Rfam assigns this 184-nucleotide RNA sequence from Thauera sp. 27 to the family "Manganese Mn2+ riboswitch aptamer (yybP-ykoY)". Taxonomically the source falls in Thauera (Bacteria, Pseudomonadati, Rhodocyclales, Zoogloeaceae).

RNA sequence: CUAGAAUCCGCGCCGUCAUUGGGGAGUAGCCGCCCUCCGGAGCUCGGGAGGGGUGCGCGCCAACAUGCUCGGCCGUCCGGCCGUGGUGCGCACGGGUCCAUGGACCUGGCAAGACCUUUGACCCUGCUGCUGCCGUCAAUGGCCGGGGUGGCGCGGGGUCAUGGGUGUUCUGCCGGCCAGGACU
Numbered sequence: 001c002u003a004g005a006a007u008c009c010g011c012g013c014c015g016u017c018a019u020u021g022g023g024g025a026g027u028a029g030c031c032g033c034c035c036u037c038c039g040g041a042g043c044u045c046g047g048g049a050g051g052g053g054u055g056c057g058c059g060c061c062a063a064c065a066u067g068c069u070c071g072g073c074c075g076u077c078c079g080g081c082c083g084u085g086g087u088g089c090g091c092a093c094g095g096g097u098c099c100a101u102g103g104a105c106c107u108g109g110c111a112a113g114a115c116c117u118u119u120g121a122c123c124c125u126g127c128u129g130c131u132g133c134c135g136u137c138a139a140u141g142g143c144c145g146g147g148g149u150g151g152c153g154c155g156g157g158g159u160c161a162u163g164g165g166u167g168u169u170c171u172g173c174c175g176g177c178c179a180g181g182a183c184u
Base pairs, nucleotide, nucleotide: 034051035050036049053093054092055091056090057089058088059087060086061085062084070083071082072081073080074079095184096183097182098181099180
Description:
On this family, see Price et al., Mol Cell 2015: "Mn(2+)-sensing mechanisms of yybP-ykoY orphan riboswitches". The base pairs follow the family's consensus structure. Rfam describes the family as follows. This RNA was originally discovered in E. coli during a large scale screen and was named SraF. The family was later found to exist upstream of related families of protein genes in many bacteria, including the the yybP and ykoK genes in B. subtilis. The specific functions of these proteins are unknown, but this structured RNA element may be involved in their genetic regulation as a riboswitch.